A member of the RNA family "Guanidine-I riboswitch aptamer" from Hylemonella gracilis, 108 nucleotides long. This family represents a conserved RNA structure found upstream of the ykkC and yxkD genes in Bacillus subtilis and related genes in other bacteria. The match comes from Rfam's covariance-model search (85 bits). The source organism's lineage runs through Bacteria, Pseudomonadati, Betaproteobacteria, Hylemonella and Hylemonella gracilis.
RNA sequence: UCAAUGGUUGGCUAGGGUUCCGGUUCGCAUGCCAUGCAUGCGGAUGUCUGGUCCGAGAGCUGGCGACCUCGGUUCGGGGUUACACGGCGGGACAAAAGCCCGGGAGAG
Numbered sequence: 001u002c003a004a005u006g007g008u009u010g011g012c013u014a015g016g017g018u019u020c021c022g023g024u025u026c027g028c029a030u031g032c033c034a035u036g037c038a039u040g041c042g043g044a045u046g047u048c049u050g051g052u053c054c055g056a057g058a059g060c061u062g063g064c065g066a067c068c069u070c071g072g073u074u075c076g077g078g079g080u081u082a083c084a085c086g087g088c089g090g091g092a093c094a095a096a097a098g099c100c101c102g103g104g105a106g107a108g
Base pairs, nucleotide, nucleotide: 007064008063009062010061011060012059015054016053020051021050022048023045024044025043026042027041028040029039030038031037065081066080067079068078069077070076071075083103085106089101090100091099